[Rfam]
The record is a 129-nucleotide sequence from Jejuibacter calystegiae, which matches "isrA Hfq binding RNA" in Rfam. It scores 72 bits against the family's covariance model. The literature on the family includes a 2008 paper in Nucleic Acids Res by Padalon-Brauch et al., "Small RNAs encoded within genetic islands of Salmonella typhimurium show host-induced expression and role in virulence". It is annotated as a small RNA. Rfam 15.1 lists 34 matches to the family in 25 species.

Nucleotides: 129
Base pairs, nucleotide, nucleotide: 029080032077034075035074036073049072050071051070052069053065055063056062107122108121109120
Number, partner (000 for none) and nucleotide at each position: 001000a002000u003000c004000u005000u006000u007000a008000c009000c010000g011000c012000c013000a014000c015000u016000g017000a018000a019000c020000a021000u022000u023000c024000g025000g026000c027000a028000u029080c030000a031000a032077a033000c034075c035074c036073c037000g038000c039000u040000u041000c042000c043000c044000u045000g046000a047000g048000c049072c050071a051070g052069u053065c054000c055063c056062c057000c058000u059000u060000g061000a062056g063055g064000u065053g066000c067000a068000g069052g070051c071050u072049g073036g074035g075034g076000c077032u078000g079000c080029g081000u082000g083000a084000a085000u086000a087000g088000u089000g090000g091000g092000u093000g094000g095000c096000g097000g098000u099000g100000a101000u102000a103000u104000c105000c106000c107122u108121g109120c110000g111000g112000c113000u114000c115000u116000c117000a118000u119000g120109g121108c122107g123000g124000a125000u126000a127000c128000u129000g